[Rfam]
RNA sequence: UGAUAAGGAACACAAGCUAACGUCUUCGCGUCCUGUGGAAACGCUUGUGUGACAAACAUCCUGUUGG
Numbered sequence: 001u002g003a004u005a006a007g008g009a010a011c012a013c014a015a016g017c018u019a020a021c022g023u024c025u026u027c028g029c030g031u032c033c034u035g036u037g038g039a040a041a042c043g044c045u046u047g048u049g050u051g052a053c054a055a056a057c058a059u060c061c062u063g064u065u066g067g
Stems, first nucleotide, its partner, number of pairs: 011049007025039005053067001055065003